[Rfam]
RNA sequence: UUACAUUCUCAGGGCGGGGUGAAAUUCCCCACCGGCGGUGAAGAGGCAUCUCUGGAUGCCACAAAGCCCGCGAGCGCCUGCGAGCAUGGUUUUGCGCAGGGUCAGCAGAUCCGGUGAUCCCGUUAACGGGUAUUCCGGAGCCGACGGUGUUGUCCUGGUGCAGGAAUUCAUCCCUGUCAGCCAGGCUCAGUCCGGAUGGGAGAGAAUGGUC
Numbered sequence: 001u002u003a004c005a006u007u008c009u010c011a012g013g014g015c016g017g018g019g020u021g022a023a024a025u026u027c028c029c030c031a032c033c034g035g036c037g038g039u040g041a042a043g044a045g046g047c048a049u050c051u052c053u054g055g056a057u058g059c060c061a062c063a064a065a066g067c068c069c070g071c072g073a074g075c076g077c078c079u080g081c082g083a084g085c086a087u088g089g090u091u092u093u094g095c096g097c098a099g100g101g102u103c104a105g106c107a108g109a110u111c112c113g114g115u116g117a118u119c120c121c122g123u124u125a126a127c128g129g130g131u132a133u134u135c136c137g138g139a140g141c142c143g144a145c146g147g148u149g150u151u152g153u154c155c156u157g158g159u160g161c162a163g164g165a166a167u168u169c170a171u172c173c174c175u176g177u178c179a180g181c182c183a184g185g186c187u188c189a190g191u192c193c194g195g196a197u198g199g200g201a202g203a204g205a206a207u208g209g210u211c
Base pairs, nucleotide, nucleotide: 004208005207006206007205008204009203010202017029018028019027033143034142035071036070037069038068066141067140074106075105110139111138112137113136114135145194146193147192
This 211-nucleotide RNA sequence from Shewanella amazonensis belongs to the Rfam family "FMN riboswitch aptamer (RFN element)".
It scores 84 bits against the family's covariance model.
NCBI's taxonomy places the organism under Bacteria, Pseudomonadota, Gammaproteobacteria, Alteromonadales, Shewanella amazonensis.